[Rfam]
Shown here is a 201-nucleotide RNA from Oryza glumipatula, a member of the family "MIR812 microRNA precursor family". A search with the family's covariance model found it, with a score of 134 bits. The family's consensus secondary structure was predicted with RNAalifold. The organism belongs to Oryza, within Eukaryota.
RNA sequence: AAAAAGGCAAACCAUGCGUUUCCGUGUCCGUGUCCAACUUUGAUUGUCCGUCUUAUAUGAAAUUUUUUUAUAAUUCGUAUUUUCAUUGUUGUUAGAUGAUAAAACAUGAUUAAUAUUUUAUGCGUGACUUGUCUUUUUAUUUUUUUCAUAACUUUUUCAAAUAAGACGAACGGUCAAACAUUGAGCACGGAAACCAGGGUU
Numbered sequence: 001a002a003a004a005a006g007g008c009a010a011a012c013c014a015u016g017c018g019u020u021u022c023c024g025u026g027u028c029c030g031u032g033u034c035c036a037a038c039u040u041u042g043a044u045u046g047u048c049c050g051u052c053u054u055a056u057a058u059g060a061a062a063u064u065u066u067u068u069u070a071u072a073a074u075u076c077g078u079a080u081u082u083u084c085a086u087u088g089u090u091g092u093u094a095g096a097u098g099a100u101a102a103a104a105c106a107u108g109a110u111u112a113a114u115a116u117u118u119u120a121u122g123c124g125u126g127a128c129u130u131g132u133c134u135u136u137u138u139a140u141u142u143u144u145u146u147c148a149u150a151a152c153u154u155u156u157u158c159a160a161a162u163a164a165g166a167c168g169a170a171c172g173g174u175c176a177a178a179c180a181u182u183g184a185g186c187a188c189g190g191a192a193a194c195c196a197g198g199g200u201u
Base pairs, nucleotide, nucleotide: 033185035183036182037181039178040177041176042175043174044173045172046171047170049168050167051166052165053164054163055162056161